A member of the RNA family "Group II catalytic intron D1-D4-4" from Paenibacillus hemerocallicola, 132 nucleotides long. Group II introns are found in rRNA, tRNA and mRNA of organelles in fungi, plants and protists, and also in mRNA in bacteria. It scores 90 bits against the family's covariance model.

[Rfam]
RNA sequence: UUGUUGGUGAAAGUCCAACCGAGGUAGGGACCAAGCCGCCUCGUAGCUAGCAGGUAUCUGGUGGUGAGAGCCUAAGGAUGAAGCCCUGUGAAAAGCUCUACAUUGGAGGCAAAACUGCAGGCCGUAACAUAA
Numbered sequence: 001u002u003g004u005u006g007g008u009g010a011a012a013g014u015c016c017a018a019c020c021g022a023g024g025u026a027g028g029g030a031c032c033a034a035g036c037c038g039c040c041u042c043g044u045a046g047c048u049a050g051c052a053g054g055u056a057u058c059u060g061g062u063g064g065u066g067a068g069a070g071c072c073u074a075a076g077g078a079u080g081a082a083g084c085c086c087u088g089u090g091a092a093a094a095g096c097u098c099u100a101c102a103u104u105g106g107a108g109g110c111a112a113a114a115c116u117g118c119a120g121g122c123c124g125u126a127a128c129a130u131a132a
Stems, first nucleotide, its partner, number of pairs: 020043005050089005055080005064071002096108003109125002